[Rfam]
RNA sequence: UCUUGUGUGAGGAGUAAGUUGAAACAAAAAAUGCUUGGGGUGGAAACACGGCAACACUCCCAGGCGUUUUUUAUU
Numbered sequence: 001u002c003u004u005g006u007g008u009g010a011g012g013a014g015u016a017a018g019u020u021g022a023a024a025c026a027a028a029a030a031a032u033g034c035u036u037g038g039g040g041u042g043g044a045a046a047c048a049c050g051g052c053a054a055c056a057c058u059c060c061c062a063g064g065c066g067u068u069u070u071u072u073a074u075u
Stems, first nucleotide, its partner, number of pairs: 015073001026072005033065002037061003040057003
RNA: Cyano-1 RNA
Organism: Anabaena cylindrica